[Rfam]
RNA sequence: UAAAAGUGGAGACCCGUAACCACUGAAAAAAAGAGGCGUUUUCCGAAAAGCCAAAAGAGUAGGAGUAAC
Numbered sequence: 001u002a003a004a005a006g007u008g009g010a011g012a013c014c015c016g017u018a019a020c021c022a023c024u025g026a027a028a029a030a031a032a033g034a035g036g037c038g039u040u041u042u043c044c045g046a047a048a049a050g051c052c053a054a055a056a057g058a059g060u061a062g063g064a065g066u067a068a069c
Stems, first nucleotide, its partner, number of pairs: 006023004035052003042063002
The record is a 69-nucleotide RNA sequence from Raineya orbicola, which matches "DUF805 RNA" in Rfam. Lineage of the source: Bacteria > Pseudomonadati > Bacteroidota > Cytophagia > Raineya. Clan: DUF805 clan. The family's RNA type in Rfam is cis-regulatory element. The match comes from Rfam's covariance-model search (69 bits).